RNA sequence: GUUUUAUAAAAGCCUAAUCAAUGCACAGGACCGGGGGAACCAAAGUUUUGGGGUGAAACCUUUUGGCUGAUUUUUAUUUGCCUAGAGGUAGGGGGAUCUCAACCCUAACCCGUCAGCUAACCUCGGAGGCUAGUGAGAGGGGUAUG
Numbered sequence: 001g002u003u004u005u006a007u008a009a010a011a012g013c014c015u016a017a018u019c020a021a022u023g024c025a026c027a028g029g030a031c032c033g034g035g036g037g038a039a040c041c042a043a044a045g046u047u048u049u050g051g052g053g054u055g056a057a058a059c060c061u062u063u064u065g066g067c068u069g070a071u072u073u074u075u076a077u078u079u080g081c082c083u084a085g086a087g088g089u090a091g092g093g094g095g096a097u098c099u100c101a102a103c104c105c106u107a108a109c110c111c112g113u114c115a116g117c118u119a120a121c122c123u124c125g126g127a128g129g130c131u132a133g134u135g136a137g138a139g140g141g142g143u144a145u146g
Stems, first nucleotide, its partner, number of pairs: 011131004018030002031126006041050002051111003059088004091105003
Shown here is a 146-nucleotide RNA from Pelosinus sp. UFO1, a member of the family "c-di-AMP riboswitch aptamer (ydaO/yuaA leader)". Lineage of the source: Bacteria > Bacillati > Selenomonadales > Sporomusaceae > Pelosinus. This family represents a conserved RNA structure found upstream of the ydaO and yuaA genes in Bacillus subtilis and related genes in other bacteria.